[Rfam]
RNA sequence: AACCAUUGAUGAAUAAUUCUGCCAUAUGAACUUUGCUGAUUCUACCCCAACCGUUCCAUUCCAUCUGAGGUU
Numbered sequence: 001a002a003c004c005a006u007u008g009a010u011g012a013a014u015a016a017u018u019c020u021g022c023c024a025u026a027u028g029a030a031c032u033u034u035g036c037u038g039a040u041u042c043u044a045c046c047c048c049a050a051c052c053g054u055u056c057c058a059u060u061c062c063a064u065c066u067g068a069g070g071u072u
Base pairs, nucleotide, nucleotide: 001072002071003070004069
Dot-bracket structure: ((((................................................................))))

The family of this 72-nucleotide RNA from Chiloscyllium punctatum is "Small nucleolar RNA SNORD47". The organism belongs to Chiloscyllium, within Eukaryota. Gene Ontology terms of the family: RNA processing and nucleolus. The family's RNA type in Rfam is C/D-box small nucleolar RNA.